A member of the RNA family "tRNA" from Thermus thermophilus, 72 nucleotides long. Taxonomically the source falls in Thermus thermophilus (Bacteria, Thermotogati, Deinococcota, Thermus). The family's RNA type in Rfam is transfer RNA. The family's consensus secondary structure is taken from published work. Its family is annotated with triplet codon-amino acid adaptor activity in the Gene Ontology.
RNA sequence: GGCCCCAUCGACUAGCGGUUAGGUCACCGGCCUUUCAAGCCGGCGGCGGGGGUUCGAGUCCCCCUGGGGUCA
Dot-bracket structure: (((((((..((((........)))).(((((.......)))))....(((((.......)))))))))))).